Shown here is a 74-nucleotide sequence from Corynebacterium massiliense, a member of the family "L31-Corynebacteriaceae ribosomal protein leader". It is one of the family's seed sequences. It is annotated as a cis-regulatory leader.

[Rfam]
Nucleotides: 074
Base pairs, nucleotide, nucleotide: 001059002058003057004055005054006053007052013046014045015044016043017042018041019040020034021033022032023031024030
Number, partner (000 for none) and nucleotide at each position: 001059a002058c003057u004055c005054g006053g007052g008000c009000a010000c011000g012000a013046u014045c015044c016043g017042c018041c019040u020034u021033a022032g023031c024030g025000u026000u027000u028000a029000c030024c031023g032022c033021u034020g035000u036000g037000a038000g039000c040019a041018g042017g043016u044015g045014g046013a047000a048000c049000c050000g051000a052007c053006c054005c055004g056000a057003a058002g059001u060000u061000u062000c063000a064000a065000c066000c067000c068000u069000g070000a071000g072000g073000g074000a